[Rfam]
Nucleotides: 108
Stems, first nucleotide, its partner, number of pairs: 003057001006054007015045002017096005028041004085103001087101003
Number, partner (000 for none) and nucleotide at each position: 001000g002000u003057g004000g005000u006054g007053a008052g009051c010050c011049g012048u013000g014000a015045c016044u017096g018095g019094c020093g021092c022000g023000c024000u025000g026000g027000g028041a029040u030039g031038g032000a033000a034000u035000u036000c037000a038031c039030c040029a041028u042000c043000a044016g045015g046000g047000a048012g049011c050010g051009g052008c053007u054006c055000c056000g057003u058000a059000g060000g061000g062000u063000g064000c065000u066000c067000u068000g069000a070000g071000g072000g073000c074000a075000c076000c077000g078000u079000g080000u081000g082000c083000u084000g085103u086000c087101g088100c089099c090000g091000u092021g093020c094019g095018c096017c097000u098000g099089g100088g101087c102000c103085g104000u105000c106000c107000g108000a
ZMP/ZTP riboswitch aptamer (pfl RNA motif): a 108-nucleotide RNA from Kitasatospora setae.